tRNA: a 72-nucleotide sequence from Candidatus Micrarchaeum sp. AZ1.
The family's consensus secondary structure is taken from published work.
It is annotated as a transfer RNA.
The source organism's lineage runs through Archaea, Microcaldota, Candidatus Micrarchaeia, Candidatus Micrarchaeales and Candidatus Micrarchaeum.
RNA sequence: GGGCCCGUAGUCGAUUGGUAAGACGUCUCCCUGACACGGAGAAGACAUGGAGUUCGAUUCUCCACGGGCCCA
Numbered sequence: 001g002g003g004c005c006c007g008u009a010g011u012c013g014a015u016u017g018g019u020a021a022g023a024c025g026u027c028u029c030c031c032u033g034a035c036a037c038g039g040a041g042a043a044g045a046c047a048u049g050g051a052g053u054u055c056g057a058u059u060c061u062c063c064a065c066g067g068g069c070c071c072a
Base pairs, nucleotide, nucleotide: 001071002070003069004068005067006066007065010024011023012022026042027041028040029039030038048064049063050062051061052060